About this RNA: The record is a 102-nucleotide RNA from Desulfitobacterium metallireducens, which matches "Purine riboswitch aptamer" in Rfam. Its family is annotated with purine nucleobase biosynthetic process in the Gene Ontology. From the family's description: Riboswitches are metabolite binding domains within certain messenger RNAs that serve as precision sensors for their corresponding targets. Allosteric rearrangement of mRNA structure is mediated by ligand binding, and this results in modulation of gene expression. A class of riboswitches that selectively recognises guanine and becomes saturated at concentrations as low as 5 nM. In Bacillus subtilis, this mRNA motif is located on at least five separate transcriptional units that together encode 17 genes that are mostly involved in purine transport and purine nucleotide biosynthesis. It has also been shown that some members of this family are specific for adenine instead. Hence this family are termed purine riboswitches. The base pairs follow the family's consensus structure, which is taken from published work. Taxonomically the source falls in Desulfitobacterium metallireducens (Bacteria, Bacillota, Clostridia, Desulfitobacteriaceae).
RNA sequence: CACCAUAAUUUCAUAACCGUUCAUAUAAUCGCGGAGAUAGGGUCUGCAAGUUUCUACCGGGCUACCGUAAAUGGCCUGACUAUGAGCGAAAGUGCGCCUAGG
Numbered sequence: 001c002a003c004c005a006u007a008a009u010u011u012c013a014u015a016a017c018c019g020u021u022c023a024u025a026u027a028a029u030c031g032c033g034g035a036g037a038u039a040g041g042g043u044c045u046g047c048a049a050g051u052u053u054c055u056a057c058c059g060g061g062c063u064a065c066c067g068u069a070a071a072u073g074g075c076c077u078g079a080c081u082a083u084g085a086g087c088g089a090a091a092g093u094g095c096g097c098c099u100a101g102g
Base pairs, nucleotide, nucleotide: 018088019087020086021085022084023083024082025081029049031047032046033045034044035043058078059077060076061075062074063073064072